[Rfam]
Background: The family of this 115-nucleotide RNA from Mesorhizobium australicum is "Alphaproteobacterial ar14".
RNA sequence: UCGCGUUGUUGGUGAUCUACCUCCUCCCAGAGAGCCAACAGAGUUGCGGUGCACCUCCUCCCGCGCCGCAAUCAAAUCAAGCCCGCCGCACCUCCUCCCGCGGCGGGCUUUUUUG
Numbered sequence: 001u002c003g004c005g006u007u008g009u010u011g012g013u014g015a016u017c018u019a020c021c022u023c024c025u026c027c028c029a030g031a032g033a034g035c036c037a038a039c040a041g042a043g044u045u046g047c048g049g050u051g052c053a054c055c056u057c058c059u060c061c062c063g064c065g066c067c068g069c070a071a072u073c074a075a076a077u078c079a080a081g082c083c084c085g086c087c088g089c090a091c092c093u094c095c096u097c098c099c100g101c102g103g104c105g106g107g108c109u110u111u112u113u114u115g
Stems, first nucleotide, its partner, number of pairs: 007040003011036003016031002045070007079110011
The family's RNA type in Rfam is small RNA.